RNA sequence: UUCAGAUAUGGCGACAUGGUCCCCAAAACUAUCGUGGGGAAGAUCUUUGGAUCGAUCUGCUCCCUGAGUGGGGUGCUCGUCAUUGCGCUGCCCGUACCCGUCAUCGUGUCCAAC
Number, nucleotide and partner (000 for none) at each position: 001u000002u113003c000004a000005g110006a000007u108008a107009u106010g105011g104012c000013g102014a101015c100016a000017u000018g097019g000020u000021c094022c000023c000024c000025a000026a000027a000028a000029c000030u000031a000032u000033c000034g000035u000036g000037g077038g076039g000040a074041a000042g000043a000044u000045c000046u000047u000048u000049g063050g062051a061052u000053c000054g000055a000056u000057c000058u000059g000060c000061u051062c050063c049064c000065u000066g000067a000068g000069u000070g000071g000072g000073g000074u040075g000076c038077u037078c000079g000080u000081c000082a000083u000084u000085g000086c000087g000088c000089u000090g000091c000092c000093c000094g021095u000096a000097c018098c000099c000100g015101u014102c013103a000104u011105c010106g009107u008108g007109u000110c005111c000112a000113a002114c000
The family of this 114-nucleotide RNA sequence from Synaphobranchus kaupii is "Potassium channel RNA editing signal". Taxonomically the source falls in Synaphobranchus (Eukaryota, Gnathostomata, Neopterygii, Elopocephala). The family's consensus secondary structure is taken from published work. The family's RNA type in Rfam is cis-regulatory element.